The family of this 67-nucleotide RNA from Caenorhabditis brenneri is "Caenorhabditis snoRNA ceN108". Pairs were carried over by alignment from the consensus structure.
[Rfam]
RNA sequence: GCGCGGUGAUGCUCUUGGAUAAGUUUCGGCUGAAUCCACUUGAUGUCAACUUAUGCUUACUGAGCGC
Numbered sequence: 001g002c003g004c005g006g007u008g009a010u011g012c013u014c015u016u017g018g019a020u021a022a023g024u025u026u027c028g029g030c031u032g033a034a035u036c037c038a039c040u041u042g043a044u045g046u047c048a049a050c051u052u053a054u055g056c057u058u059a060c061u062g063a064g065c066g067c
Base pairs, nucleotide, nucleotide: 001067002066003065004064

Description
A search with the family's covariance model found it, with a score of 54 bits.